[Rfam]
RNA: Singlet oxygen resistance RNA X
RNA sequence: ACCCGUGGGCACGUGCGGGAUAUCGCGUGCCACCCUCCCUGUUGGACCUGGCCGGGCACUGUGCCCGGCCAUUUUU
Numbered sequence: 001a002c003c004c005g006u007g008g009g010c011a012c013g014u015g016c017g018g019g020a021u022a023u024c025g026c027g028u029g030c031c032a033c034c035c036u037c038c039c040u041g042u043u044g045g046a047c048c049u050g051g052c053c054g055g056g057c058a059c060u061g062u063g064c065c066c067g068g069c070c071a072u073u074u075u076u
Base pairs, nucleotide, nucleotide: 009030010029011028012027013026014025015024050070051069052068053067054066055065056064057063